[Rfam]
RNA: Glycine riboswitch aptamer
RNA sequence: CGAGGCCACUCUGGAAAGCAGGCCCUCGGGCCUCACCCAAGGUGUAAGCCGCGCCUCGCGCGCGGUGAAACUCUCAGGUGCCCAUGACAGAGGGGGAGUU
Number, nucleotide and partner (000 for none) at each position: 001c000002g000003a000004g000005g000006c095007c094008a000009c092010u091011c090012u089013g088014g000015a000016a000017a000018g000019c000020a033021g032022g031023c030024c000025c000026u000027c000028g000029g000030g023031c022032c021033u020034c000035a079036c078037c077038c000039a074040a000041g000042g073043u000044g071045u000046a000047a000048g066049c065050c064051g063052c062053g061054c000055c000056u000057c000058g000059c000060g000061c053062g052063c051064g050065g049066u048067g000068a000069a000070a000071c044072u000073c042074u039075c000076a000077g037078g036079u035080g000081c000082c000083c000084a000085u000086g000087a000088c013089a012090g011091a010092g009093g000094g007095g006096g000097a000098g000099u000100u000